[Rfam]
This 170-nucleotide sequence from Muribacter muris belongs to the Rfam family "Lysine riboswitch aptamer".
The organism belongs to Muribacter, within Bacteria.
A search with the family's covariance model found it, with a score of 142 bits.
RNA sequence: ACAAAUUGUAGAGGUGCAAAUCCGAUAAGUAUUCUUUUCGAGUGGAAAACGGUGAAGAAAGAAGAAAGGCGGAUUUGCCGAAAUCAAUUAAGCGUCAUCUUAAUUGGUUGGGGUCGUUACCGAAAGGGACGACACUGUCAUAGUGAAAACUAUGGAGUGCUACUGUUAGG
Numbered sequence: 001a002c003a004a005a006u007u008g009u010a011g012a013g014g015u016g017c018a019a020a021u022c023c024g025a026u027a028a029g030u031a032u033u034c035u036u037u038u039c040g041a042g043u044g045g046a047a048a049a050c051g052g053u054g055a056a057g058a059a060a061g062a063a064g065a066a067a068g069g070c071g072g073a074u075u076u077g078c079c080g081a082a083a084u085c086a087a088u089u090a091a092g093c094g095u096c097a098u099c100u101u102a103a104u105u106g107g108u109u110g111g112g113g114u115c116g117u118u119a120c121c122g123a124a125a126g127g128g129a130c131g132a133c134a135c136u137g138u139c140a141u142a143g144u145g146a147a148a149a150c151u152a153u154g155g156a157g158u159g160c161u162a163c164u165g166u167u168a169g170g
Stems, first nucleotide, its partner, number of pairs: 006165001008163004016078009032063007082109011110136002113133006120126001138155007